[Rfam]
RNA sequence: UGCCAUUGCUAAGUCAAGGCUUCUUCCCGUGCAUGUUUUCUUGCCACCAAUCUAUGGAAGUAAUUUGUCUGUUACAGCUUUGGUAGAUGGACUCUUGCCCGCCGCCUUGGUUUCAUUCUGAAAUUAGGGCUGACAAGCGAUCGUUUUGAGAGCUCUGUCGUAUAGGGUUUGCUGUGUUUUGUUUGAGUUGAGUUCUGCUUCCACUUUAUUUUGUGGCAUAACAGCAGUACUCUUAGUAACAUCUCACACAUUC
Numbered sequence: 001u002g003c004c005a006u007u008g009c010u011a012a013g014u015c016a017a018g019g020c021u022u023c024u025u026c027c028c029g030u031g032c033a034u035g036u037u038u039u040c041u042u043g044c045c046a047c048c049a050a051u052c053u054a055u056g057g058a059a060g061u062a063a064u065u066u067g068u069c070u071g072u073u074a075c076a077g078c079u080u081u082g083g084u085a086g087a088u089g090g091a092c093u094c095u096u097g098c099c100c101g102c103c104g105c106c107u108u109g110g111u112u113u114c115a116u117u118c119u120g121a122a123a124u125u126a127g128g129g130c131u132g133a134c135a136a137g138c139g140a141u142c143g144u145u146u147u148g149a150g151a152g153c154u155c156u157g158u159c160g161u162a163u164a165g166g167g168u169u170u171g172c173u174g175u176g177u178u179u180u181g182u183u184u185g186a187g188u189u190g191a192g193u194u195c196u197g198c199u200u201c202c203a204c205u206u207u208a209u210u211u212u213g214u215g216g217c218a219u220a221a222c223a224g225c226a227g228u229a230c231u232c233u234u235a236g237u238a239a240c241a242u243c244u245c246a247c248a249c250a251u252u253c
Base pairs, nucleotide, nucleotide: 003083004082005081017070018069019068020067023060024059025058026057027056031044032043033042095171097168098167099166100165104130105129106128107127108126109125110124111123112122113121114120137153138152141149142148143147174247175246176245180241181240182239190232191231192230193229196226197225198224199223201216202215203214204213
The record is a 253-nucleotide RNA from Histoplasma mississippiense, which matches "Small nucleolar RNA snR191" in Rfam.
Rfam classes the family as an H/ACA-box small nucleolar RNA.
On this family, see Badis et al., RNA 2003: "A snoRNA that guides the two most conserved pseudouridine modifications within rRNA confers a growth advantage in yeast".
The family is grouped with related families in Rfam's "SNORA74 clan".
Rfam links the family to the GO terms RNA processing and nucleolus.
The source organism's lineage runs through Eukaryota, Fungi, Eurotiomycetes, Eurotiomycetidae and Histoplasma.